[Rfam]
RNA: SL2 RNA
Organism: Diploscapter pachys
RNA sequence: GUUUUUAAUCCAGUUACUCGAGGUAAAUCUUGAGAUUCGACCAAAUUUCGAUUUGUGUCGAAUAACAGAUCUUUUGGGUCUAAACUUCCCGGGGAUAUCCGGAAAGGGACAAA
Numbered sequence: 001g002u003u004u005u006u007a008a009u010c011c012a013g014u015u016a017c018u019c020g021a022g023g024u025a026a027a028u029c030u031u032g033a034g035a036u037u038c039g040a041c042c043a044a045a046u047u048u049c050g051a052u053u054u055g056u057g058u059c060g061a062a063u064a065a066c067a068g069a070u071c072u073u074u075u076g077g078g079u080c081u082a083a084a085c086u087u088c089c090c091g092g093g094g095a096u097a098u099c100c101g102g103a104a105a106g107g108g109a110c111a112a113a
Base pairs, nucleotide, nucleotide: 007037008036009033010032013029015025016024017023038060039059040058041057042055043054044053045052046051087109088108089107090106093100094099